[Rfam]
RNA sequence: GACGGGAGAUUCCAAAGGGAUCGCAUUGAUCCUCUCCUUCUCCCCCCCCUCACGCCUCUCUUUAUGUCUUCCCCUGUUCACAGGAUCAUGCCAUCCCUUUGGAAUUCCCCGC
Dot-bracket structure: ..((((.((((((((((((((.((((.((((((..............................................)..))))))))).)))))))))))))).)))).
Numbered sequence: 001g002a003c004g005g006g007a008g009a010u011u012c013c014a015a016a017g018g019g020a021u022c023g024c025a026u027u028g029a030u031c032c033u034c035u036c037c038u039u040c041u042c043c044c045c046c047c048c049c050u051c052a053c054g055c056c057u058c059u060c061u062u063u064a065u066g067u068c069u070u071c072c073c074c075u076g077u078u079c080a081c082a083g084g085a086u087c088a089u090g091c092c093a094u095c096c097c098u099u100u101g102g103a104a105u106u107c108c109c110c111g112c
Stems, first nucleotide, its partner, number of pairs: 003111004008106014023091004028087005033080001
This 112-nucleotide RNA from Colocasia esculenta belongs to the Rfam family "mir-393 microRNA precursor family". The pairing is the family consensus, mapped onto this sequence. Rfam links the family to the GO terms RISC complex and miRNA-mediated post-transcriptional gene silencing.